The record is a 138-nucleotide RNA sequence from Paenibacillus athensensis, which matches "c-di-AMP riboswitch aptamer (ydaO/yuaA leader)" in Rfam. A search with the family's covariance model found it, with a score of 74 bits. Taxonomically the source falls in Paenibacillus (Bacteria, Bacillota, Caryophanales, Paenibacillaceae). From the family's description: This family represents a conserved RNA structure found upstream of the ydaO and yuaA genes in Bacillus subtilis and related genes in other bacteria. The ydaO/yuaA element is thought to act as a genetic 'off' switch for the ydaO and yuaA genes in its native state.
[Rfam]
RNA sequence: AAAAACAACAUGCCGAAUUCCCGAUUUAUCGGGAAACGGGGGAACCACUCUGGGUGAAUUGAUCUUGCAACAAAGGGAUCAUAGGGAACCUUCAACCGAACCCUCCAGCUAACCUCGUAGGCACCGGAAGGAGACAAG
Number, nucleotide and partner (000 for none) at each position: 001a000002a000003a000004a000005a000006c000007a000008a000009c000010a000011u123012g122013c121014c120015g000016a000017a000018u035019u034020c033021c032022c031023g030024a029025u000026u000027u000028a000029u024030c023031g022032g021033g020034a019035a018036a118037c117038g116039g115040g114041g113042g000043a000044a000045c000046c000047a000048c000049u000050c000051u000052g103053g102054g101055u000056g000057a000058a000059u000060u081061g080062a079063u078064c077065u076066u075067g000068c000069a000070a000071c000072a000073a000074a000075g066076g065077g064078a063079u062080c061081a060082u000083a000084g097085g096086g000087a000088a000089c000090c000091u000092u000093c000094a000095a000096c085097c084098g000099a000100a000101c054102c053103c052104u000105c000106c000107a000108g000109c000110u000111a000112a000113c041114c040115u039116c038117g037118u036119a000120g014121g013122c012123a011124c000125c000126g000127g000128a000129a000130g000131g000132a000133g000134a000135c000136a000137a000138g000